[Rfam]
Source information
Rfam assigns this 109-nucleotide RNA sequence to the family "SL2 RNA". It scores 93 bits against the family's covariance model. Pairs were carried over by alignment from the consensus structure, which is taken from published work. Rfam classes the family as a non-coding RNA gene. The family has 30 seed sequences and 598 matches in Rfam 15.1. Clan: SL clan. Rfam describes the family as follows. This family represents SL2 RNA. SL2 RNA is involved in trans splicing in lower eukaryotes. Gene Ontology term of the family: mRNA trans splicing, via spliceosome.

RNA sequence: GGUUUUAACCCAGUUACUCAAGGUACGCUGGAGUUCCGACCUUUCGAAAGAGAGUGUCGAACAACUAUAACUUUUGGAAAGCCUUCCCGGGGACAUCCGGUUAGGCAAA
Numbered sequence: 001g002g003u004u005u006u007a008a009c010c011c012a013g014u015u016a017c018u019c020a021a022g023g024u025a026c027g028c029u030g031g032a033g034u035u036c037c038g039a040c041c042u043u044u045c046g047a048a049a050g051a052g053a054g055u056g057u058c059g060a061a062c063a064a065c066u067a068u069a070a071c072u073u074u075u076g077g078a079a080a081g082c083c084u085u086c087c088c089g090g091g092g093a094c095a096u097c098c099g100g101u102u103a104g105g106c107a108a109a
Stems, first nucleotide, its partner, number of pairs: 007035002009031002013028002015025003037059004041054005084107001086105002089102002092098001